[Rfam]
A member of the RNA family "ODC internal ribosome entry site (IRES)" from Sarcophilus harrisii, 160 nucleotides long. The organism belongs to Sarcophilus, within Eukaryota.

Nucleotides: 160
Base pairs, nucleotide, nucleotide: 005090011085012084014082015081016080017078019076020075021074022073023072047062048061049060050059095159096158097157100156102154103153108148109147111145
Number, partner (000 for none) and nucleotide at each position: 001000a002000g003000u004000g005090u006000a007000a008000u009000g010000g011085c012084u013000g014082u015081a016080c017078c018000g019076a020075a021074a022073g023072g024000a025000c026000a027000u028000u029000a030000c031000u032000a033000g034000c035000c036000u037000u038000c039000u040000a041000u042000u043000u044000a045000a046000c047062a048061g049060g050059a051000c052000u053000u054000u055000a056000u057000c058000c059050u060049c061048c062047u063000g064000g065000a066000g067000a068000a069000c070000c071000a072023c073022c074021u075020u076019u077000g078017g079000u080016g081015u082014a083000a084012a085011g086000g087000u088000g089000a090005a091000a092000a093000u094000a095159g096158u097157u098000u099000g100156u101000c102154u103153u104000u105000a106000a107000a108148u109147u110000a111145c112000a113000u114000c115000u116000u117000u118000u119000a120000g121000u122000u123000u124000u125000c126000c127000a128000u129000u130000u131000u132000g133000u134000u135000g136000c137000a138000c139000u140000u141000u142000a143000a144000a145111g146000g147109a148108a149000c150000a151000c152000c153103a154102a155000a156100a157097a158096a159095c160000c

The literature on the family includes a 2005 paper in Cell Mol Life Sci by Pyronnet et al., "Alternative splicing facilitates internal ribosome entry on the ornithine decarboxylase mRNA". The match comes from Rfam's covariance-model search (63 bits).